[Rfam]
RNA sequence: ACUGGACUUGCGUUUAGCAGGUGGCUACUCCGGGCGCCGAUCCCCCGGACAACC
Numbered sequence: 001a002c003u004g005g006a007c008u009u010g011c012g013u014u015u016a017g018c019a020g021g022u023g024g025c026u027a028c029u030c031c032g033g034g035c036g037c038c039g040a041u042c043c044c045c046c047g048g049a050c051a052a053c054c
Stems, first nucleotide, its partner, number of pairs: 006022006029049006

The record is a 54-nucleotide RNA sequence from Asticcacaulis sp. AC466, which matches "sul1 RNA" in Rfam. The family's consensus secondary structure is taken from published work.